[Rfam]
RNA sequence: ACGACCUUACUUGAACAGGAUCUGUUCUAUAGGCUCGUACCUCUGUUUCCUUGAGUUCUAAGGAGACAGGAACCUACGUCUGGUGGAUGAAUCAUGACCGUGUGAUCAGAGCGUGAUUAACGGCUCGGUGAACCCACUCUUAGGAGAAGGCUCAUCUUGAGCUGUAGAGGAUCGUUCUCAGACAGAAUCUUCUGCCUGGGAUUGUCACUCGGUUGUCUGACAGACC
Numbered sequence: 001a002c003g004a005c006c007u008u009a010c011u012u013g014a015a016c017a018g019g020a021u022c023u024g025u026u027c028u029a030u031a032g033g034c035u036c037g038u039a040c041c042u043c044u045g046u047u048u049c050c051u052u053g054a055g056u057u058c059u060a061a062g063g064a065g066a067c068a069g070g071a072a073c074c075u076a077c078g079u080c081u082g083g084u085g086g087a088u089g090a091a092u093c094a095u096g097a098c099c100g101u102g103u104g105a106u107c108a109g110a111g112c113g114u115g116a117u118u119a120a121c122g123g124c125u126c127g128g129u130g131a132a133c134c135c136a137c138u139c140u141u142a143g144g145a146g147a148a149g150g151c152u153c154a155u156c157u158u159g160a161g162c163u164g165u166a167g168a169g170g171a172u173c174g175u176u177c178u179c180a181g182a183c184a185g186a187a188u189c190u191u192c193u194g195c196c197u198g199g200g201a202u203u204g205u206c207a208c209u210c211g212g213u214u215g216u217c218u219g220a221c222a223g224a225c226c
Stems, first nucleotide, its partner, number of pairs: 001038002003035001005033003013027006043069004048064006078225005097213004102208005108202001110176004120165007127156005133150002178199004183194004
RNA: Plant small nucleolar RNA U3
Organism: Abrus precatorius